[Rfam]
Bacillaceae-1 RNA: a 67-nucleotide sequence from Paraliobacillus sp. PM-2.
RNA sequence: AAGCAUAGAUGUUAGAAUAAGAACGUCACGUCGUGUGACAACGUCUAACUGACCCACGUCAUGUGGG
Dot-bracket structure: ..........((((((........(((((.....)))))....))))))...(((((.....)))))

The match comes from Rfam's covariance-model search (63 bits). The family's consensus secondary structure is taken from published work.